Rfam assigns this 70-nucleotide RNA from Eschrichtius robustus to the family "mir-199 microRNA precursor family". About the family: This family consists of the microRNA (miRNA) precursor mir-199 which appears to be specific to humans. Animal miRNAs are transcribed as ~70nt precursors and subsequently processed by the Dicer enzyme to give a ~22nt product. In this case the mature sequence comes from the 3' arm of the precursor. The extents of the hairpin precursors are not generally known and are estimated based on hairpin prediction. The products are thought to have regulatory roles through complementarity to mRNA. The involvement of Dicer in miRNA processing suggests a relationship with the phenomenon of RNA interference. miRNAs are numbered based on the sequence of the mature RNA. The family's consensus secondary structure was predicted with RNAalifold. The source organism's lineage runs through Eukaryota, Metazoa, Gnathostomata, Theria and Eschrichtius. The literature on the family includes a 2002 paper in Genes Dev by Mourelatos et al., "miRNPs: a novel class of ribonucleoproteins containing numerous microRNAs".
RNA sequence: ACUCCGUCUACCCAGUGUUUAGACUAUCUGUUCAGGACUCCCAAAUUGUACAGUAGUCUGCACAUUGGUU
Numbered sequence: 001a002c003u004c005c006g007u008c009u010a011c012c013c014a015g016u017g018u019u020u021a022g023a024c025u026a027u028c029u030g031u032u033c034a035g036g037a038c039u040c041c042c043a044a045a046u047u048g049u050a051c052a053g054u055a056g057u058c059u060g061c062a063c064a065u066u067g068g069u070u
Stems, first nucleotide, its partner, number of pairs: 012068007020060007028053004033048002